[Rfam]
The record is a 129-nucleotide RNA from Nicator chloris, which matches "Small nucleolar RNA SNORA55" in Rfam.
A search with the family's covariance model found it, with a score of 88 bits.
Rfam 15.1 lists 1,476 matches to the family in 616 species.
Its family is annotated with RNA processing and nucleolus in the Gene Ontology.
About the family: ACA55 is a member of the H/ACA class of snoRNA that guide the sites of modification of uridines to pseudouridines.
Pairs were carried over by alignment from the consensus structure, which was predicted with PFOLD.
RNA sequence: GCACCUGCCUCGUUCCCGUUCUCGCUGUGCAGUGAAGGUCGGGGGGCACUUGGUGCUACAGCACAGCAGUGGGAAUCCAGAUGGGUUCUGCACUGGUUUGGGACUCAUCUCUACACCUCUGCAACACCA
Dot-bracket structure: (((((.......((((((.((...............)).).))))).....))))).........((((.(.......((((((((......(((...))).))))))))......).)))).......